[Rfam]
RNA sequence: GGCCAGUGAUGUAACAAAGAUAUUUGCUACUCUUGAUGGGAUUUUUCCAUUUGAUGAUUCUUAUCCACCAAGAUCGCUGAGGCC
Dot-bracket structure: ((((............................................................................))))
Overview: The family of this 84-nucleotide RNA sequence from Cynara cardunculus is "Small nucleolar RNA SNORD24". The family's consensus secondary structure was predicted with PFOLD. For this family Rfam cites "U24, a novel intron-encoded small nucleolar RNA with two 12 nt long, phylogenetically conserved complementarities to 28S rRNA" (Qu et al., Nucleic Acids Res, 1995). Rfam links the family to the GO terms nucleolus and RNA processing.